[Rfam]
This 106-nucleotide RNA from Gracilibacillus thailandensis belongs to the Rfam family "SAM riboswitch aptamer (S box leader)". The base pairs follow the family's consensus structure, which is taken from published work. The match comes from Rfam's covariance-model search (88 bits).
RNA sequence: AGCUUAUCAAGAGAGGUGGAGGGACUGGCCCAAUGAAACCCGGCAACCAUUAAGCGAUUGCUUAAAAGGUGCUAAUUCCAACAGGAGUACUCCUGAGAGAUAAGAA
Numbered sequence: 001a002g003c004u005u006a007u008c009a010a011g012a013g014a015g016g017u018g019g020a021g022g023g024a025c026u027g028g029c030c031c032a033a034u035g036a037a038a039c040c041c042g043g044c045a046a047c048c049a050u051u052a053a054g055c056g057a058u059u060g061c062u063u064a065a066a067a068g069g070u071g072c073u074a075a076u077u078c079c080a081a082c083a084g085g086a087g088u089a090c091u092c093c094u095g096a097g098a099g100a101u102a103a104g105a106a
Stems, first nucleotide, its partner, number of pairs: 003104006013041001015040003021031003026080003042073004047069002050065004077098001082095005